[Rfam]
RNA sequence: GUCACGGGAUCGUUAGAAGGAAUCUUGAUAUCGCCGCUUUUCCGCCAAGCGCCUGCCGCCCUGCAUUGCGAGAAGACCUGUGUGCGUUGACCCGGUCCUUUCGGUUCCGGAUUCCUCAGCCCCCAGCCCCCGGGGCCGUCAGGAUCGGGUCUGUACGCGCGACAAGGAGGGCCAACGCAAGUUGGUCCUUUU
Numbered sequence: 001g002u003c004a005c006g007g008g009a010u011c012g013u014u015a016g017a018a019g020g021a022a023u024c025u026u027g028a029u030a031u032c033g034c035c036g037c038u039u040u041u042c043c044g045c046c047a048a049g050c051g052c053c054u055g056c057c058g059c060c061c062u063g064c065a066u067u068g069c070g071a072g073a074a075g076a077c078c079u080g081u082g083u084g085c086g087u088u089g090a091c092c093c094g095g096u097c098c099u100u101u102c103g104g105u106u107c108c109g110g111a112u113u114c115c116u117c118a119g120c121c122c123c124c125a126g127c128c129c130c131c132g133g134g135g136c137c138g139u140c141a142g143g144a145u146c147g148g149g150u151c152u153g154u155a156c157g158c159g160c161g162a163c164a165a166g167g168a169g170g171g172c173c174a175a176c177g178c179a180a181g182u183u184g185g186u187c188c189u190u191u192u
Stems, first nucleotide, its partner, number of pairs: 038165001043049001081161007089151011102138009119127002169188008